RNA: LOOT RNA
RNA sequence: AGCCUAAACUCUACAAUUACUGUAGAGCAUGGCACAAAAUCGUUGGACAUAUUAACCCCGUCAUGGGCGUGUCCAACGUUACAAGUCGAAAGGCUUGUAUGCCGCAAGGCA
Numbered sequence: 001a002g003c004c005u006a007a008a009c010u011c012u013a014c015a016a017u018u019a020c021u022g023u024a025g026a027g028c029a030u031g032g033c034a035c036a037a038a039a040u041c042g043u044u045g046g047a048c049a050u051a052u053u054a055a056c057c058c059c060g061u062c063a064u065g066g067g068c069g070u071g072u073c074c075a076a077c078g079u080u081a082c083a084a085g086u087c088g089a090a091a092g093g094c095u096u097g098u099a100u101g102c103c104g105c106a107a108g109g110c111a
Base pairs, nucleotide, nucleotide: 002033003032004031009027010026011025012024013023014022015021041078042077043076044075045074046073047072048071049070050069056067057066058065080099081098082097083096084095085094086093087092100111101110102109103108